[Rfam]
RNA sequence: GGGUCUAUGAUGACAAACCUACGUCAUCAAUAGAGGUGAUGACAUAAAUAUUAUGCUCUGGUUCCAGCUGCUGAGGCCU
Numbered sequence: 001g002g003g004u005c006u007a008u009g010a011u012g013a014c015a016a017a018c019c020u021a022c023g024u025c026a027u028c029a030a031u032a033g034a035g036g037u038g039a040u041g042a043c044a045u046a047a048a049u050a051u052u053a054u055g056c057u058c059u060g061g062u063u064c065c066a067g068c069u070g071c072u073g074a075g076g077c078c079u
Base pairs, nucleotide, nucleotide: 001079002078003077004076005073008070009069

Rfam assigns this 79-nucleotide RNA from Mesocricetus auratus to the family "Small nucleolar RNA SNORD115". The source organism's lineage runs through Eukaryota, Teleostomi, Boreoeutheria, Muroidea and Mesocricetus. Rfam 15.1 lists 3,387 matches to the family in 131 species.